A member of the RNA family "TD-2 RNA" from Treponema denticola, 95 nucleotides long.
The family's RNA type in Rfam is small RNA.
A reference for the family is Weinberg et al. (2007), "Identification of 22 candidate structured RNAs in bacteria using the CMfinder comparative genomics pipeline", Nucleic Acids Res.
Its Rfam clan is "TD (Treponema denticola) motifs".
The family's consensus secondary structure is taken from published work.

RNA sequence: ACCGCCACGGAUGGCGGUGGUUAAGACUCUUAGAGUUUUGCUUACGCAAAACUCUAAGAUCAAAAAUGUGCGUCCAUGCACAUUUUUGAUCGCUC
Numbered sequence: 001a002c003c004g005c006c007a008c009g010g011a012u013g014g015c016g017g018u019g020g021u022u023a024a025g026a027c028u029c030u031u032a033g034a035g036u037u038u039u040g041c042u043u044a045c046g047c048a049a050a051a052c053u054c055u056a057a058g059a060u061c062a063a064a065a066a067u068g069u070g071c072g073u074c075c076a077u078g079c080a081c082a083u084u085u086u087u088g089a090u091c092g093c094u095c
Base pairs, nucleotide, nucleotide: 001018002017003016004015005014006013032055033054034053035052036051037050038049039048040047041046058091059090060089061088062087063086064085065084066083067082068081069080070079071078